[Rfam]
RNA sequence: GGCUGGUCUGAGUACAGUUUACAACUAAUUGAUCACAACCAGUUACAGAUUUCUUUGUUCCUUCUCCUCUCCCACUGCUUCAGUUGGCUAGCCUUGA
Numbered sequence: 001g002g003c004u005g006g007u008c009u010g011a012g013u014a015c016a017g018u019u020u021a022c023a024a025c026u027a028a029u030u031g032a033u034c035a036c037a038a039c040c041a042g043u044u045a046c047a048g049a050u051u052u053c054u055u056u057g058u059u060c061c062u063u064c065u066c067c068u069c070u071c072c073c074a075c076u077g078c079u080u081c082a083g084u085u086g087g088c089u090a091g092c093c094u095u096g097a
Stems, first nucleotide, its partner, number of pairs: 001093008010085002016076003023059003027055002
Y RNA: a 97-nucleotide RNA sequence from Macaca mulatta. It scores 55 bits against the family's covariance model. For this family Rfam cites "Conserved features of Y RNAs: a comparison of experimentally derived secondary structures" (Teunissen et al., Nucleic Acids Res, 2000). The family's consensus secondary structure is taken from published work. The source organism's lineage runs through Eukaryota, Vertebrata, Primates, Cercopithecidae and Macaca. By type it is a non-coding RNA gene. Rfam's curators write: Y RNAs are components of the Ro ribonucleoprotein particle (Ro RNP), in association with Ro60 and La proteins.